Rfam assigns this 149-nucleotide RNA from Allobosea sp. LC85 to the family "Alphaproteobacterial sRNA ar35".
A search with the family's covariance model found it, with a score of 46 bits.
The source organism's lineage runs through Bacteria, Pseudomonadati, Hyphomicrobiales, Alloboseaceae and Allobosea.
[Rfam]
RNA sequence: AGGUUCACGGCGAUGUCGAGGGCGUUCCACUGUCCUCCAUCUCCGUUGAAGACGGCCAUGAGCCGAACGUGUGACGCCGGAUGUACGCGCGCCCGUUCUGGACAUGGCCGUUGGCGUUUCCGGGGCCCGAUGGCCCCGGGACGCAAGUU
Numbered sequence: 001a002g003g004u005u006c007a008c009g010g011c012g013a014u015g016u017c018g019a020g021g022g023c024g025u026u027c028c029a030c031u032g033u034c035c036u037c038c039a040u041c042u043c044c045g046u047u048g049a050a051g052a053c054g055g056c057c058a059u060g061a062g063c064c065g066a067a068c069g070u071g072u073g074a075c076g077c078c079g080g081a082u083g084u085a086c087g088c089g090c091g092c093c094c095g096u097u098c099u100g101g102a103c104a105u106g107g108c109c110g111u112u113g114g115c116g117u118u119u120c121c122g123g124g125g126c127c128c129g130a131u132g133g134c135c136c137c138g139g140g141a142c143g144c145a146a147g148u149u
Base pairs, nucleotide, nucleotide: 004050005049006048007046008045009044018041019040021038022037054109055108056107057106058105059104060103066097067096068095069094072091073090075089076088077087110148111147112146114144115143116142117141119140120139121138122137123136125134126133127132